[Rfam]
Shown here is a 75-nucleotide sequence from Sapajus apella, a member of the family "mir-320 microRNA precursor family". The family's consensus secondary structure was predicted with RNAalifold. It scores 69 bits against the family's covariance model. NCBI's taxonomy places the organism under Eukaryota, Sarcopterygii, Theria, Haplorrhini, Sapajus.

RNA sequence: AAAAUACUCAGCCUUUUCUUCCCAGUUCUUCCCGGAGUCAAGAAAGCUGGGUUGAGAGGGCACAAUAAUAAUAGU
Number, nucleotide and partner (000 for none) at each position: 001a000002a000003a000004a000005u000006a000007c000008u000009c000010a000011g000012c000013c000014u058015u057016u056017u055018c054019u000020u000021c051022c050023c049024a048025g047026u000027u000028c000029u044030u043031c042032c000033c000034g039035g000036a000037g000038u000039c034040a000041a000042g031043a030044a029045a000046g000047c025048u024049g023050g022051g021052u000053u000054g018055a017056g016057a015058g014059g000060g000061c000062a000063c000064a000065a000066u000067a000068a000069u000070a000071a000072u000073a000074g000075u000